RNA sequence: UGGGCAGUAUCCUAUGAACUGCACCUUGUAUUCUUAUAAAUUUUGUAUAUUCUGCCUUGAUCCAUACUAUGGACUGGGACAGAGGG
Numbered sequence: 001u002g003g004g005c006a007g008u009a010u011c012c013u014a015u016g017a018a019c020u021g022c023a024c025c026u027u028g029u030a031u032u033c034u035u036a037u038a039a040a041u042u043u044u045g046u047a048u049a050u051u052c053u054g055c056c057u058u059g060a061u062c063c064a065u066a067c068u069a070u071g072g073a074c075u076g077g078g079a080c081a082g083a084g085g086g
Base pairs, nucleotide, nucleotide: 002025003024004022005021006020007019008018010017011016052082053081054080055078056077057076059074061073062072063071